[Rfam]
RNA: Y RNA
RNA sequence: GGCUGAUCUGAAGGUAGUGAGUUACCUCAACUGACUGUUCACUGUGAGUUACAGCUUAAGCUCCUCAUUCUGUUCUCUCCACCCUUCUCACUGCUGUACUUGACUGGUCUUAA
Numbered sequence: 001g002g003c004u005g006a007u008c009u010g011a012a013g014g015u016a017g018u019g020a021g022u023u024a025c026c027u028c029a030a031c032u033g034a035c036u037g038u039u040c041a042c043u044g045u046g047a048g049u050u051a052c053a054g055c056u057u058a059a060g061c062u063c064c065u066c067a068u069u070c071u072g073u074u075c076u077c078u079c080c081a082c083c084c085u086u087c088u089c090a091c092u093g094c095u096g097u098a099c100u101u102g103a104c105u106g107g108u109c110u111u112a113a
Stems, first nucleotide, its partner, number of pairs: 001109005007103002010101002014097002016092006044074001047071002